[Rfam]
RNA sequence: GUGGCGGAUAGGAACCAGUUAGUGCUUGUGCGUUGAUUGGGCCGAAAACCGCCGAUAUGAUAUGUUCACCCUAAAGGUCGUAUGUGCCUGUUCCUUUAGGGCACGUAUAUCACCAUUGUGCACGACAUUC
Numbered sequence: 001g002u003g004g005c006g007g008a009u010a011g012g013a014a015c016c017a018g019u020u021a022g023u024g025c026u027u028g029u030g031c032g033u034u035g036a037u038u039g040g041g042c043c044g045a046a047a048a049c050c051g052c053c054g055a056u057a058u059g060a061u062a063u064g065u066u067c068a069c070c071c072u073a074a075a076g077g078u079c080g081u082a083u084g085u086g087c088c089u090g091u092u093c094c095u096u097u098a099g100g101g102c103a104c105g106u107a108u109a110u111c112a113c114c115a116u117u118g119u120g121c122a123c124g125a126c127a128u129u130c
Base pairs, nucleotide, nucleotide: 003053004052005051006050007049011043012042015040016039017038018037019036020035021034022033023032024031025030065122067120068119069118072115076114077113078112080108081107083105084104085103086102087101089100
A member of the RNA family "Nematode snoRNA ceN39" from Ancylostoma duodenale, 130 nucleotides long. By type it is an H/ACA-box small nucleolar RNA. The source organism's lineage runs through Eukaryota, Bilateria, Protostomia, Ancylostomatinae and Ancylostoma. It scores 51 bits against the family's covariance model. On this family, see Jia et al., BMC Mol Biol 2007: "Systematic identification of non-coding RNA 2,2,7-trimethylguanosine cap structures in Caenorhabditis elegans".